[Rfam]
RNA sequence: GACACCGCUGCGGGAGAGCACCCACCUGCCGUCACCGGCGGGCGGGUCGCCGAAGGAGCAAAUCUCCCUCAAGAAUCUCUCAGGCCCACGUACCGCAACGGUCAG
Numbered sequence: 001g002a003c004a005c006c007g008c009u010g011c012g013g014g015a016g017a018g019c020a021c022c023c024a025c026c027u028g029c030c031g032u033c034a035c036c037g038g039c040g041g042g043c044g045g046g047u048c049g050c051c052g053a054a055g056g057a058g059c060a061a062a063u064c065u066c067c068c069u070c071a072a073g074a075a076u077c078u079c080u081c082a083g084g085c086c087c088a089c090g091u092a093c094c095g096c097a098a099c100g101g102u103c104a105g
Base pairs, nucleotide, nucleotide: 006100007099009097010096011095012094013093020047021046022045023044049085050084051083052081053080056079057078058077063071
RNA: Glycine riboswitch aptamer
Organism: Actinoplanes octamycinicus